[Rfam]
RNA: Eukaryotic large subunit ribosomal RNA, nucleotides 672 to 934
Organism: Dendroctonus ponderosae
RNA sequence: GAGUCUAACUCAAGUGCAAGUGCAAAGGUGUCAAACCUACGCGCGAAAUUAAAGUAAUGGUUGAGAAGGUUACUGCAUCGACAUCCGGCCACCAGGCUGCGAUUGAGCAUUUGGGUUAGGACCCGAAAGAUGGUGAACUAUGCCUGAGUAGGGUGAAGUCAGAGGAAACUCUGAUGGAGGCUCGCAGCGAUACUGACGUGCAAAUCGUUCGUCAAACUUGGGUAUAGGGGCGAAAGACUAAUCGAACCAUCUAGUAGCUGGUU
Numbered sequence: 001g002a003g004u005c006u007a008a009c010u011c012a013a014g015u016g017c018a019a020g021u022g023c024a025a026a027g028g029u030g031u032c033a034a035a036c037c038u039a040c041g042c043g044c045g046a047a048a049u050u051a052a053a054g055u056a057a058u059g060g061u062u063g064a065g066a067a068g069g070u071u072a073c074u075g076c077a078u079c080g081a082c083a084u085c086c087g088g089c090c091a092c093c094a095g096g097c098u099g100c101g102a103u104u105g106a107g108c109a110u111u112u113g114g115g116u117u118a119g120g121a122c123c124c125g126a127a128a129g130a131u132g133g134u135g136a137a138c139u140a141u142g143c144c145u146g147a148g149u150a151g152g153g154u155g156a157a158g159u160c161a162g163a164g165g166a167a168a169c170u171c172u173g174a175u176g177g178a179g180g181c182u183c184g185c186a187g188c189g190a191u192a193c194u195g196a197c198g199u200g201c202a203a204a205u206c207g208u209u210c211g212u213c214a215a216a217c218u219u220g221g222g223u224a225u226a227g228g229g230g231c232g233a234a235a236g237a238c239u240a241a242u243c244g245a246a247c248c249a250u251c252u253a254g255u256a257g258c259u260g261g262u263u
Base pairs, nucleotide, nucleotide: 005119006118007117008116009115010114011113012112013111014110015109016108017107020044021043022042026038027037028036029035048055049054060082061081062080063079064078067074068073084102085101086099087098088097089096090095122261123260125258129251130250131249132248133247134246138227139226140225141224142223143222144221145220146219147218148217149215151183152182153181154180158175159174160173161172162171163170164169187212188211189210190209192208193207195206196205229239230238